[Rfam]
RNA sequence: UGCCUACUGUGUAAAAGACACUGCUACAGUUUAUUCCUGCGGGUGUAUUCAAAGGGCAGUGCAACAGAAAUUCACCGUGUGACAUCAUUGGUUUUCUUGUGGUUGUCAAACCUGAUAUUUCUAAUUAUACAGUC
Dot-bracket structure: .((..((((.........(.(((((.(((.......))).).)....)....)).)))))))...(((((((((......(.(((.............))).).........))).))))))............
RNA: Small nucleolar RNA SNORA8
Organism: Chinchilla lanigera